[Rfam]
RNA sequence: CAGAUUUAUCCUAAGUCAAACUUCUCUACCUUUGACCAAAUUCUUGGAAAAAUUAUUAUAACAUCUACAAUACCAAAUAAAUACACUACCAACACAUAUUUCAUGGUAGAUUUAAUGAAACUAAUUUAAUGUUGUAGAUAUUAGAUGUUUUUUUCUAUAAACCUGCUCAAAGUUAGAGAGGUUUGCUUUGGGAAAAAAUGAC
Numbered sequence: 001c002a003g004a005u006u007u008a009u010c011c012u013a014a015g016u017c018a019a020a021c022u023u024c025u026c027u028a029c030c031u032u033u034g035a036c037c038a039a040a041u042u043c044u045u046g047g048a049a050a051a052a053u054u055a056u057u058a059u060a061a062c063a064u065c066u067a068c069a070a071u072a073c074c075a076a077a078u079a080a081a082u083a084c085a086c087u088a089c090c091a092a093c094a095c096a097u098a099u100u101u102c103a104u105g106g107u108a109g110a111u112u113u114a115a116u117g118a119a120a121c122u123a124a125u126u127u128a129a130u131g132u133u134g135u136a137g138a139u140a141u142u143a144g145a146u147g148u149u150u151u152u153u154u155c156u157a158u159a160a161a162c163c164u165g166c167u168c169a170a171a172g173u174u175a176g177a178g179a180g181g182u183u184u185g186c187u188u189u190g191g192g193a194a195a196a197a198a199u200g201a202c
Base pairs, nucleotide, nucleotide: 005197006196007195009193011191012190013189014188015187017185018184019183020182021181022180023179024178025177026176031171032170033169034168035167045157046156047155048154049153050152051151052150054147055146056145060142061141063139064138065137066136067135068134069133075127076126077125078124
The family of this 202-nucleotide sequence from Paspalum vaginatum is "MIR1435 microRNA precursor family".
Pairs were carried over by alignment from the consensus structure, which was predicted with RNAalifold.
It scores 98 bits against the family's covariance model.
The source organism's lineage runs through Eukaryota, Spermatophyta, commelinids, Paspalinae and Paspalum.
Gene Ontology terms of the family: miRNA-mediated post-transcriptional gene silencing and RISC complex.